[Rfam]
RNA sequence: ACUCAACACUUAUCAAUUAAAAAGGGUGAGUCUAUAUUGUAAAAGCAAGCCAUCUUAGAAUGGAUCCUUGAUCAGUAAGUUAACCCUAAACCUGUUUUAAACGGAGUUU
Numbered sequence: 001a002c003u004c005a006a007c008a009c010u011u012a013u014c015a016a017u018u019a020a021a022a023a024g025g026g027u028g029a030g031u032c033u034a035u036a037u038u039g040u041a042a043a044a045g046c047a048a049g050c051c052a053u054c055u056u057a058g059a060a061u062g063g064a065u066c067c068u069u070g071a072u073c074a075g076u077a078a079g080u081u082a083a084c085c086c087u088a089a090a091c092c093u094g095u096u097u098u099a100a101a102c103g104g105a106g107u108u109u
Base pairs, nucleotide, nucleotide: 023087024086025085026084027083035077036076037075038074043069044068045067050063051062052061053060